RNA sequence: AACCGAAAGGGCAAACUUGCUGAAAAGUAAGGACGCAAAGCUACGGGUCUAAGGGUACGUUUACUAUGAUCGCCGAGCCGCCGAAG
Numbered sequence: 001a002a003c004c005g006a007a008a009g010g011g012c013a014a015a016c017u018u019g020c021u022g023a024a025a026a027g028u029a030a031g032g033a034c035g036c037a038a039a040g041c042u043a044c045g046g047g048u049c050u051a052a053g054g055g056u057a058c059g060u061u062u063a064c065u066a067u068g069a070u071c072g073c074c075g076a077g078c079c080g081c082c083g084a085a086g
Stems, first nucleotide, its partner, number of pairs: 003083001011036002016031006034072001040078003044075003047070003
Rfam assigns this 86-nucleotide RNA sequence from Gracilibacillus halophilus to the family "c-di-GMP-I-GGC riboswitch aptamer".
Pairs were carried over by alignment from the consensus structure, which is taken from published work.
Rfam links the family to the GO term cyclic-di-GMP binding.